[Rfam]
RNA sequence: UGUGGCAAGUGAUGCAGAAGUUAAUAUUAUGCUAUACACUGAAACUUUUGUGGACAAAAAACUCCGCUUAUUAUCUGAUGCCACA
Numbered sequence: 001u002g003u004g005g006c007a008a009g010u011g012a013u014g015c016a017g018a019a020g021u022u023a024a025u026a027u028u029a030u031g032c033u034a035u036a037c038a039c040u041g042a043a044a045c046u047u048u049u050g051u052g053g054a055c056a057a058a059a060a061a062c063u064c065c066g067c068u069u070a071u072u073a074u075c076u077g078a079u080g081c082c083a084c085a
Stems, first nucleotide, its partner, number of pairs: 003083005

This 85-nucleotide RNA sequence from Zea mays belongs to the Rfam family "Small nucleolar RNA R16". Lineage of the source: Eukaryota > Viridiplantae > Tracheophyta > commelinids > Zea. A reference for the family is Galardi et al. (2002), "Purified box C/D snoRNPs are able to reproduce site-specific 2'-O-methylation of target RNA in vitro", Mol Cell Biol. It is annotated as a C/D-box small nucleolar RNA. Pairs were carried over by alignment from the consensus structure, which was predicted with PFOLD.